[Rfam]
RNA: Rubella virus 3' cis-acting element
Organism: Striga hermonthica
RNA sequence: CGCUAUAGCGGCGCUAUAGCGCCGCUAUAGCGCGCCGUUUAAAACAACGCGACGGUAUU
Numbered sequence: 001c002g003c004u005a006u007a008g009c010g011g012c013g014c015u016a017u018a019g020c021g022c023c024g025c026u027a028u029a030g031c032g033c034g035c036c037g038u039u040u041a042a043a044a045c046a047a048c049g050c051g052a053c054g055g056u057a058u059u
Stems, first nucleotide, its partner, number of pairs: 001032004006027009033051003037048003